[Rfam]
RNA sequence: GUGUUUUUCAUGGUAUAAGAUUUAUUAAAGGUUAAAGAAAUUGGAGGGCUGUCGCGAUGACAGCCCUCUUUUUGAUA
Numbered sequence: 001g002u003g004u005u006u007u008u009c010a011u012g013g014u015a016u017a018a019g020a021u022u023u024a025u026u027a028a029a030g031g032u033u034a035a036a037g038a039a040a041u042u043g044g045a046g047g048g049c050u051g052u053c054g055c056g057a058u059g060a061c062a063g064c065c066c067u068c069u070u071u072u073u074g075a076u077a
Stems, first nucleotide, its partner, number of pairs: 047065007

The family of this 77-nucleotide RNA sequence from Prevotella sp. CAG:1031 is "Bacteroidetes FopS (family of paralogous sRNAs)". The RNA-binding protein RbpB and BTncRNA_FopS sRNA are involved in the post-transcription regulation of polysaccharide utilisation loci (PUL). FopS sRNAs function as post-transcriptional repressors by binding to the vicinity of the start codon of the first mRNA of target PUL polycistrons, typically corresponding to the cognate SusC homolog, impeding translation of the respective glycan transporter. The literature on the family includes a 2025 paper in Nat Commun by Ruttiger et al., "The global RNA-binding protein RbpB is a regulator of polysaccharide utilization in Bacteroides thetaiotaomicron". Rfam classes the family as a small RNA.